The family of this 86-nucleotide RNA sequence from Desulfoscipio geothermicus is "c-di-GMP-I-GGC riboswitch aptamer". Lineage of the source: Bacteria > Clostridia > Eubacteriales > Desulfallaceae > Desulfoscipio geothermicus.
[Rfam]
RNA sequence: UGUGCCAAAGGCAAACCACUCGAAAGGGUGGGGCGCAAAGCCAUGGGUCUGUAGCCCUUGAGGGUAUGACUGCCAGGUUGCCGCGA
Numbered sequence: 001u002g003u004g005c006c007a008a009a010g011g012c013a014a015a016c017c018a019c020u021c022g023a024a025a026g027g028g029u030g031g032g033g034c035g036c037a038a039a040g041c042c043a044u045g046g047g048u049c050u051g052u053a054g055c056c057c058u059u060g061a062g063g064g065u066a067u068g069a070c071u072g073c074c075a076g077g078u079u080g081c082c083g084c085g086a
Stems, first nucleotide, its partner, number of pairs: 001086001003083002011036002016031006034072001039079004044075003047070003